Rfam assigns this 306-nucleotide RNA from Corymbia citriodora to the family "Plant signal recognition particle RNA". Its family is annotated with SRP-dependent cotranslational protein targeting to membrane, signal sequence recognition and signal recognition particle, endoplasmic reticulum targeting in the Gene Ontology. Taxonomically the source falls in Corymbia citriodora (Eukaryota, Streptophytina, Embryophyta, Spermatophyta). It is annotated as a non-coding RNA gene.
RNA sequence: GCCGAGCUCAGUUACGUGGGCUGGUAACCCGAGUGGGGGCAUGAACGUGAUGGGACAUGGCUACGGUUCUUGUGGGUCAGACCUGCUGCAUCUCUCUUCUGGCUCGCUCGUUCCAAGCCGAGAGUCGAUCCACGCAGGCCGGGCGAAGGGUUGGGCCAUGUGGGUACUAGAGCUGUAGAGGUCCGCAUGAGGCUUGAUUCGCAGAGCAGAGAAAACCUCCCGCUCCAGGCAAUGGAAGAAUAACGGGCCGGUGACACUAGGGUCCACGACGGCCCAAUGGGCCGAAUCCUCUGGACCACCACUUUU
Number, nucleotide and partner (000 for none) at each position: 001g040002c039003c038004g000005a022006g021007c020008u019009c018010a017011g000012u000013u000014a000015c000016g000017u010018g009019g008020g007021c006022u005023g000024g000025u000026a000027a000028c037029c036030c035031g000032a000033g000034u000035g030036g029037g028038g003039g002040c001041a000042u000043g306044a305045a304046c000047g302048u301049g300050a000051u298052g297053g296054g000055a000056c293057a292058u000059g289060g288061c000062u286063a000064c284065g283066g282067u281068u000069c280070u279071u000072g000073u276074g275075g274076g273077u272078c271079a000080g264081a263082c262083c261084u260085g000086c000087u000088g257089c000090a000091u254092c000093u253094c000095u000096c000097u000098u000099c251100u250101g249102g248103c247104u246105c245106g244107c000108u239109c238110g000111u237112u236113c235114c234115a233116a000117g230118c229119c228120g000121a000122g225123a224124g223125u222126c000127g000128a165129u164130c163131c162132a161133c160134g159135c000136a000137g156138g000139c154140c153141g152142g151143g000144c149145g000146a000147a000148g000149g144150g000151u142152u141153g140154g139155g000156c137157c000158a000159u134160g133161u132162g131163g130164g129165u128166a000167c172168u000169a000170g000171a000172g167173c000174u000175g220176u000177a218178g217179a000180g000181g000182u000183c000184c000185g000186c211187a000188u209189g000190a000191g000192g000193c204194u203195u000196g000197a000198u000199u000200c000201g000202c000203a194204g193205a000206g000207c000208a000209g188210a000211g186212a000213a000214a000215a000216c000217c178218u177219c000220c175221c000222g125223c124224u123225c122226c000227a000228g119229g118230c117231a000232a000233u115234g114235g113236a112237a111238g109239a108240a000241u000242a000243a000244c106245g105246g104247g103248c102249c101250g100251g099252u000253g093254a091255c000256a000257c088258u000259a000260g084261g083262g082263u081264c080265c000266a000267c000268g000269a000270c000271g078272g077273c076274c075275c074276a073277a000278u000279g070280g069281g067282c066283c065284g064285a000286a062287u000288c060289c059290u000291c000292u057293g056294g000295a000296c053297c052298a051299c000300c049301a048302c047303u000304u045305u044306u043